[Rfam]
RNA sequence: UAGCACAGACCAUAGUGCUAUCCCUACCUUGACAUGCGUAGAGAGUGAUCUCUGGGUGUGAAGCUCAAGGAACAAUGUAACGAAAGUGCUAGGGAAAUAUACUGAGCGAGGUUAGCGAAAGCGAACAUAUGGAAAUUUUAGGCUCCGUAAAAGGUG
Numbered sequence: 001u002a003g004c005a006c007a008g009a010c011c012a013u014a015g016u017g018c019u020a021u022c023c024c025u026a027c028c029u030u031g032a033c034a035u036g037c038g039u040a041g042a043g044a045g046u047g048a049u050c051u052c053u054g055g056g057u058g059u060g061a062a063g064c065u066c067a068a069g070g071a072a073c074a075a076u077g078u079a080a081c082g083a084a085a086g087u088g089c090u091a092g093g094g095a096a097a098u099a100u101a102c103u104g105a106g107c108g109a110g111g112u113u114a115g116c117g118a119a120a121g122c123g124a125a126c127a128u129a130u131g132g133a134a135a136u137u138u139u140a141g142g143c144u145c146c147g148u149a150a151a152a153g154g155u156g
Stems, first nucleotide, its partner, number of pairs: 002019005028069005033060005039054006087123004128149006
Dot-bracket structure: .(((((........)))))........((((((((((.((((((....)))))).)))))....))))).................((((.............................))))....((((((..........)))))).......
RNA: Group II catalytic intron D1-D4-7